RNA sequence: GGAUGUGAGGACGAUCUGGCUGCGACAUCUGUCACCCCAUUGAUUGCCAGGGUUGAUUUGGCUGAUCUGGCUGGCUAGGCGGGUGUCCCCUUCCUCCCUCACCUCUCUAUGUGCGUCCCUCCCAAAGCUGUGCGCUCAGUGGAAGAGGACGUCCUCCCAGAUAGGAGUACCGUUCUUCAGUCAAGGGUAUACGAUAAGCAGAAAGGGUGAGGGAGGCCUUCCUCCAAUUCGUCCUCAGGGCAAUCUCCCAAGGCUCGAUUUUAUCCUCUGUCAGAUUAAAGGAGAGGAGGAGGUUCCUCCCUUUUUCCGUAA
Numbered sequence: 001g002g003a004u005g006u007g008a009g010g011a012c013g014a015u016c017u018g019g020c021u022g023c024g025a026c027a028u029c030u031g032u033c034a035c036c037c038c039a040u041u042g043a044u045u046g047c048c049a050g051g052g053u054u055g056a057u058u059u060g061g062c063u064g065a066u067c068u069g070g071c072u073g074g075c076u077a078g079g080c081g082g083g084u085g086u087c088c089c090c091u092u093c094c095u096c097c098c099u100c101a102c103c104u105c106u107c108u109a110u111g112u113g114c115g116u117c118c119c120u121c122c123c124a125a126a127g128c129u130g131u132g133c134g135c136u137c138a139g140u141g142g143a144a145g146a147g148g149a150c151g152u153c154c155u156c157c158c159a160g161a162u163a164g165g166a167g168u169a170c171c172g173u174u175c176u177u178c179a180g181u182c183a184a185g186g187g188u189a190u191a192c193g194a195u196a197a198g199c200a201g202a203a204a205g206g207g208u209g210a211g212g213g214a215g216g217c218c219u220u221c222c223u224c225c226a227a228u229u230c231g232u233c234c235u236c237a238g239g240g241c242a243a244u245c246u247c248c249c250a251a252g253g254c255u256c257g258a259u260u261u262u263a264u265c266c267u268c269u270g271u272c273a274g275a276u277u278a279a280a281g282g283a284g285a286g287g288a289g290g291a292g293g294u295u296c297c298u299c300c301c302u303u304u305u306u307c308c309g310u311a312a
Stems, first nucleotide, its partner, number of pairs: 001108003005102006013093002018090002024087010035074002037070003042067004046062003117167001118165003122139001125136001127135002140159003147155001198254002205247003277312001279310001281307005286300005
The record is a 312-nucleotide RNA sequence from Sphenodon punctatus, which matches "7SK RNA" in Rfam. The organism belongs to Sphenodon, within Eukaryota. Rfam's curators write: 7SK was discovered as an abundant small nuclear RNA in the mid-70s but a possible function has only recently been suggested. Two independent studies have found that 7SK RNA binds the CDK9/cyclin T complex (known as elongation factor P-TEFb). P-TEFb activates transcription by phosphorylating the C-terminal domain of RNA polymerase II. This process is negatively regulated by the 7SK RNP. The secondary structure of 7SK RNA shown here was proposed by Wasserman and Steitz on the basis of chemical modification and enzymatic cleavage experiments. The match comes from Rfam's covariance-model search (204 bits).